Small nucleolar RNA snR161: a 164-nucleotide RNA sequence from Saccharomyces mikatae. The sequence is in the family's curated seed alignment.
RNA sequence: GUAAAAUACAACACCCAGUAUUUUUGGCUGCUCGCGUAUCUCCCACUCAUGGGUAGUCUCUCUAAGCUGGUAGAUAGAUAUUUUAAUGAACCACUUAAGUUCCGUUGUGAAGUUUCUCGUCUCUUUAGGCUGUAUUUCAUGACACUACUGUAGUUCACACAUAU
Numbered sequence: 001g002u003a004a005a006a007u008a009c010a011a012c013a014c015c016c017a018g019u020a021u022u023u024u025u026g027g028c029u030g031c032u033c034g035c036g037u038a039u040c041u042c043c044c045a046c047u048c049a050u051g052g053g054u055a056g057u058c059u060c061u062c063u064a065a066g067c068u069g070g071u072a073g074a075u076a077g078a079u080a081u082u083u084u085a086a087u088g089a090a091c092c093a094c095u096u097a098a099g100u101u102c103c104g105u106u107g108u109g110a111a112g113u114u115u116c117u118c119g120u121c122u123c124u125u126u127a128g129g130c131u132g133u134a135u136u137u138c139a140u141g142a143c144a145c146u147a148c149u150g151u152a153g154u155u156c157a158c159a160c161a162u163a164u
Stems, first nucleotide, its partner, number of pairs: 015070005027057008036048001087157005093151002104143010117132001120129002
Pairs were carried over by alignment from the consensus structure, which was predicted with WAR. On this family, see Schattner et al., Nucleic Acids Res 2004: "Genome-wide searching for pseudouridylation guide snoRNAs: analysis of the Saccharomyces cerevisiae genome". It is annotated as an H/ACA-box small nucleolar RNA.